[Rfam]
RNA sequence: UCGAAGCACCAUCUACAAAUGGAUAAGAUCCCAGUCUAGUGCAUAGGAGGUUUUGAAAACAAAGGAGCAAUCAUCACUUCUUGUUCUAUCCAGAGGGUGCUAGCUCCUUU
Number, nucleotide and partner (000 for none) at each position: 001u000002c000003g000004a000005a000006g000007c000008a000009c022010c021011a020012u019013c000014u000015a000016c000017a000018a000019a012020u011021g010022g009023a000024u000025a000026a000027g000028a000029u000030c000031c000032c000033a000034g000035u000036c000037u000038a000039g000040u000041g000042c000043a000044u000045a000046g000047g000048a000049g000050g000051u000052u000053u000054u000055g000056a000057a000058a000059a000060c000061a110062a109063a108064g107065g106066a105067g104068c103069a000070a101071u000072c099073a098074u000075c000076a000077c000078u095079u094080c093081u092082u000083g000084u000085u000086c000087u000088a000089u000090c000091c000092a081093g080094a079095g078096g000097g000098u073099g072100c000101u070102a000103g068104c067105u066106c065107c064108u063109u062110u061
Plastid-psbA-1 3UTR RNA: a 110-nucleotide sequence from Nicotiana tabacum. Plastid psbA-1 is a non-coding RNA (ncRNA) present in plastids. The source organism's lineage runs through Eukaryota, Embryophyta, Euphyllophyta, eudicotyledons and Nicotiana. The family is grouped with related families in Rfam's "Plastid-psbA 3UTR RNA clan". The match comes from Rfam's covariance-model search (75 bits).